[Rfam]
Rfam assigns this 185-nucleotide RNA sequence from Lysinibacillus telephonicus to the family "Lysine riboswitch aptamer". It scores 123 bits against the family's covariance model.

RNA sequence: AUUUAUGAUAGAGGUGCAAGGUUUAAUAGUAACUGAUUGGAGGAUGAACAAUUCCUGAGAUAGUUAGUGAAAGGAAAACUUGCCGAAGCGGUAAAUCAAUUGUUCAGGUUUACUUGCUGGUUUUACAUUUAAGAAAUGUAAGACUGUCAGAAUCAAAAUCAAGGUUCUGGAGGGCUAUCUCGCAA
Numbered sequence: 001a002u003u004u005a006u007g008a009u010a011g012a013g014g015u016g017c018a019a020g021g022u023u024u025a026a027u028a029g030u031a032a033c034u035g036a037u038u039g040g041a042g043g044a045u046g047a048a049c050a051a052u053u054c055c056u057g058a059g060a061u062a063g064u065u066a067g068u069g070a071a072a073g074g075a076a077a078a079c080u081u082g083c084c085g086a087a088g089c090g091g092u093a094a095a096u097c098a099a100u101u102g103u104u105c106a107g108g109u110u111u112a113c114u115u116g117c118u119g120g121u122u123u124u125a126c127a128u129u130u131a132a133g134a135a136a137u138g139u140a141a142g143a144c145u146g147u148c149a150g151a152a153u154c155a156a157a158a159u160c161a162a163g164g165u166u167c168u169g170g171a172g173g174g175c176u177a178u179c180u181c182g183c184a185a
Base pairs, nucleotide, nucleotide: 007179008178009177010176011175016083017082018081019080020079022077023076024075032068033067034066035065036064037063038062039061087118088117089116090114091113092112093111094110095109096108097107119145120144121143122142123141124140125139126138127137128136129135147170148169149168150167151166152165153164
The family's consensus secondary structure is taken from published work.